[Rfam]
Rfam assigns this 87-nucleotide RNA sequence from Triticum aestivum to the family "MIR1120/MIR1122 microRNA precursor family".

RNA sequence: AUAAUCCUUCUGUAAAGAAAUAUAAGAGUGUUUAGAUCAUUAAAGUAGUGAUCUAAACACUCUUAUAUUUCUUUACGGAGGGAAUAG
Numbered sequence: 001a002u003a004a005u006c007c008u009u010c011u012g013u014a015a016a017g018a019a020a021u022a023u024a025a026g027a028g029u030g031u032u033u034a035g036a037u038c039a040u041u042a043a044a045g046u047a048g049u050g051a052u053c054u055a056a057a058c059a060c061u062c063u064u065a066u067a068u069u070u071c072u073u074u075a076c077g078g079a080g081g082g083a084a085u086a087g
Base pairs, nucleotide, nucleotide: 003085005083007081008080009079010078011077013075014074015073016072017071019069020068021067022066023065024064025063026062027061028060029059030058031057032056033055034054035053036052037051038050039049040048041047
The literature on the family includes a 2007 paper in Genome Biol by Yao et al., "Cloning and characterization of microRNAs from wheat (Triticum aestivum L.)". Lineage of the source: Eukaryota > Streptophyta > Euphyllophyta > Poales > Triticum.